[Rfam]
RNA: Small nucleolar RNA SNORA1
Organism: Octodon degus
RNA sequence: AAUCUCAUUCUGGAUUAGAAUGGGCACUGUUGAUUGGUGUCUAGAAUUGGUCAAUGUGGCUAAAAUUGAGACAUAGGUCAUGCUUCCAUCUCAGUAAAUAUUUAUGGUGGUGACAAUAAGGCCUGUAACAUUU
Numbered sequence: 001a002a003u004c005u006c007a008u009u010c011u012g013g014a015u016u017a018g019a020a021u022g023g024g025c026a027c028u029g030u031u032g033a034u035u036g037g038u039g040u041c042u043a044g045a046a047u048u049g050g051u052c053a054a055u056g057u058g059g060c061u062a063a064a065a066u067u068g069a070g071a072c073a074u075a076g077g078u079c080a081u082g083c084u085u086c087c088a089u090c091u092c093a094g095u096a097a098a099u100a101u102u103u104a105u106g107g108u109g110g111u112g113a114c115a116a117u118a119a120g121g122c123c124u125g126u127a128a129c130a131u132u133u
Base pairs, nucleotide, nucleotide: 003059004058006056007055008054021043022042023041024040025039026038027037073126074125075124076123077122087112088111089110090109092107